[Rfam]
RNA sequence: UGUGCAGGGAUUGUGUGUAUCGGCUCAGUGCUAUAUAAUCAAUGCACUCUGAAUCCGAAAGAGUUCCCUGCAAAAUCAGAUUCAGGGGAAGGUGGGCAGUUGAGCUUCAAUCUUAACCGUUGAAAUCCUCAACAAUCAUCUUCCCUACAUCU
Numbered sequence: 001u002g003u004g005c006a007g008g009g010a011u012u013g014u015g016u017g018u019a020u021c022g023g024c025u026c027a028g029u030g031c032u033a034u035a036u037a038a039u040c041a042a043u044g045c046a047c048u049c050u051g052a053a054u055c056c057g058a059a060a061g062a063g064u065u066c067c068c069u070g071c072a073a074a075a076u077c078a079g080a081u082u083c084a085g086g087g088g089a090a091g092g093u094g095g096g097c098a099g100u101u102g103a104g105c106u107u108c109a110a111u112c113u114u115a116a117c118c119g120u121u122g123a124a125a126u127c128c129u130c131a132a133c134a135a136u137c138a139u140c141u142u143c144c145c146u147a148c149a150u151c152u
Stems, first nucleotide, its partner, number of pairs: 004071007015047006085146011099133004

Record summary:
A member of the RNA family "small nucleolar RNA snoR135" from Cephalotus follicularis, 152 nucleotides long. Rfam 15.1 lists 837 matches to the family in 220 species. Rfam classes the family as an H/ACA-box small nucleolar RNA. The organism belongs to Cephalotus, within Eukaryota.